[Rfam]
RNA: COG3610-DE RNA
RNA sequence: GACGAGUCGAGGAAAACGCAAAGGUGCGUAUUUUAAGAUAGAGGGCAUCAGGCCUUUGGCCAGACGCGGGAAGCGUCGAUGCUGACACACCCUUGAUUUGAACGAGAAGGAGUCACA
Numbered sequence: 001g002a003c004g005a006g007u008c009g010a011g012g013a014a015a016a017c018g019c020a021a022a023g024g025u026g027c028g029u030a031u032u033u034u035a036a037g038a039u040a041g042a043g044g045g046c047a048u049c050a051g052g053c054c055u056u057u058g059g060c061c062a063g064a065c066g067c068g069g070g071a072a073g074c075g076u077c078g079a080u081g082c083u084g085a086c087a088c089a090c091c092c093u094u095g096a097u098u099u100g101a102a103c104g105a106g107a108a109g110g111a112g113u114c115a116c117a
Base pairs, nucleotide, nucleotide: 006039007038008037010034011033012032013031016029017028018027019026044083045082046081047080048079049078051061052060053059054058063077064076065075066074067073084114085113086112092106093105094104